[Rfam]
RNA sequence: AACAUUCCUCGUUAGGUGAGGCUCCUGUACGGAGAUAUGCUGCUGCCCAAAAAUGUCCAAAGACGCCAAUGGGUCAACCGGAAUCAUCGACAUAAGGUGUUUCCUAACGCAGCUGGCUCAAGUCCUAUGCCGUACAGUGCUAAAGCUCUACGAAUGGAGGCUUGU
Numbered sequence: 001a002a003c004a005u006u007c008c009u010c011g012u013u014a015g016g017u018g019a020g021g022c023u024c025c026u027g028u029a030c031g032g033a034g035a036u037a038u039g040c041u042g043c044u045g046c047c048c049a050a051a052a053a054u055g056u057c058c059a060a061a062g063a064c065g066c067c068a069a070u071g072g073g074u075c076a077a078c079c080g081g082a083a084u085c086a087u088c089g090a091c092a093u094a095a096g097g098u099g100u101u102u103c104c105u106a107a108c109g110c111a112g113c114u115g116g117c118u119c120a121a122g123u124c125c126u127a128u129g130c131c132g133u134a135c136a137g138u139g140c141u142a143a144a145g146c147u148c149u150a151c152g153a154a155u156g157g158a159g160g161c162u163u164g165u
Base pairs, nucleotide, nucleotide: 006160007159009157010156011151012150013095015147016146017145020141021140022139025137026136027135028134029133030132031131032130039113040112041111042110043109045074046073047072048071049070054065055064056063057062080104081103082102083101086098087097088096115125116124
RNA: M-box riboswitch aptamer (ykoK leader)
Organism: Alteribacter lacisalsi